[Rfam]
RNA sequence: CUCGAUAAUGGUAAACUCGCCGUGAGGCGAGGGCGCAAAGCUAUGGGCCAUCAAUCGUCCUACCCCUCAAAUUGGACCGAUGGUCGCCAGGCUGCCGAAG
Numbered sequence: 001c002u003c004g005a006u007a008a009u010g011g012u013a014a015a016c017u018c019g020c021c022g023u024g025a026g027g028c029g030a031g032g033g034c035g036c037a038a039a040g041c042u043a044u045g046g047g048c049c050a051u052c053a054a055u056c057g058u059c060c061u062a063c064c065c066c067u068c069a070a071a072u073u074g075g076a077c078c079g080a081u082g083g084u085c086g087c088c089a090g091g092c093u094g095c096c097g098a099a100g
Base pairs, nucleotide, nucleotide: 001100003097004096011036012035016031017030018029019028020027021026034086039093040092041091042090044089045088046087047084048083049082050081051080052079
RNA: c-di-GMP-I-GGC riboswitch aptamer
Organism: Tuwongella immobilis